This 70-nucleotide RNA sequence from Peromyscus maniculatus belongs to the Rfam family "mir-344 microRNA precursor family". A search with the family's covariance model found it, with a score of 54 bits.
[Rfam]
RNA sequence: UUACCAGUAAUGCUCUGGCUAUAUUCCAGGUCUCACUUGGUCCUGGGUAUAACCAAAGCCUAAUUGUUCA
Numbered sequence: 001u002u003a004c005c006a007g008u009a010a011u012g013c014u015c016u017g018g019c020u021a022u023a024u025u026c027c028a029g030g031u032c033u034c035a036c037u038u039g040g041u042c043c044u045g046g047g048u049a050u051a052a053c054c055a056a057a058g059c060c061u062a063a064u065u066g067u068u069c070a
Stems, first nucleotide, its partner, number of pairs: 007064002012059003016055003020051004026040005
Gene Ontology terms of the family: miRNA-mediated post-transcriptional gene silencing and RISC complex.